[Rfam]
RNA: Small nucleolar RNA Z278
Organism: Camellia sinensis
RNA sequence: GCCCGUGAAGGUAUUGUCCAUGUUUUUUGAAGUGUUGUGGAGCCAAGCCCCUGUCUUUAUGGGGAGAACCUACUUGGUGAAGCUACAUUUCACAUGAUAUUAUUGGAUUCUACUGAGGC
Numbered sequence: 001g002c003c004c005g006u007g008a009a010g011g012u013a014u015u016g017u018c019c020a021u022g023u024u025u026u027u028u029g030a031a032g033u034g035u036u037g038u039g040g041a042g043c044c045a046a047g048c049c050c051c052u053g054u055c056u057u058u059a060u061g062g063g064g065a066g067a068a069c070c071u072a073c074u075u076g077g078u079g080a081a082g083c084u085a086c087a088u089u090u091c092a093c094a095u096g097a098u099a100u101u102a103u104u105g106g107a108u109u110c111u112a113c114u115g116a117g118g119c
Stems, first nucleotide, its partner, number of pairs: 001119003049064005